[Rfam]
RNA sequence: CACGGUCAGACAAAGUAACUCAAUCCCUGAGCGAAAUCCGUACCAUUACAGAAGGAGGGCUUUAGACACCCCUGUCCUAUGGACUAAAACACCUCUUUAAUGCGGCCGUCUGGACGCUGCUUGCAUGGCGGGAAAUCGCGCUUAUCCCGUUUCAUAGACGGCGCCGCUACGCAGUUAGAACGCGCGCCCACAAAUUUACUGUAUAAGGAGGACAAUUUUUAAUGACAAGCG
Numbered sequence: 001c002a003c004g005g006u007c008a009g010a011c012a013a014a015g016u017a018a019c020u021c022a023a024u025c026c027c028u029g030a031g032c033g034a035a036a037u038c039c040g041u042a043c044c045a046u047u048a049c050a051g052a053a054g055g056a057g058g059g060c061u062u063u064a065g066a067c068a069c070c071c072c073u074g075u076c077c078u079a080u081g082g083a084c085u086a087a088a089a090c091a092c093c094u095c096u097u098u099a100a101u102g103c104g105g106c107c108g109u110c111u112g113g114a115c116g117c118u119g120c121u122u123g124c125a126u127g128g129c130g131g132g133a134a135a136u137c138g139c140g141c142u143u144a145u146c147c148c149g150u151u152u153c154a155u156a157g158a159c160g161g162c163g164c165c166g167c168u169a170c171g172c173a174g175u176u177a178g179a180a181c182g183c184g185c186g187c188c189c190a191c192a193a194a195u196u197u198a199c200u201g202u203a204u205a206a207g208g209a210g211g212a213c214a215a216u217u218u219u220u221a222a223u224g225a226c227a228a229g230c231g
Stems, first nucleotide, its partner, number of pairs: 004044003019031004074084004092211008101203001102167005107160005116124002127151007171202005177197001178189001
The family of this 231-nucleotide sequence is "RT-2 RNA".